Notes
SucA RNA motif: an 84-nucleotide sequence. For this family Rfam cites "Identification of 22 candidate structured RNAs in bacteria using the CMfinder comparative genomics pipeline" (Weinberg et al., Nucleic Acids Res, 2007). Rfam's curators put it in the seed alignment. By type it is a cis-regulatory element. Pairs were carried over by alignment from the consensus structure, which is taken from published work.
RNA sequence: UCGCAUCCGCCAUCCGGUUCAGCCGUGUCGCGGAAGGUUUCUCAAACCAGCCAAUGCCUCCCGCAGGGAGGCGGAAAGUAUGCG
Dot-bracket structure: .(((.(((((....((((...))))....))))).((((.....)))).((....(((((((...))))))).....))..)))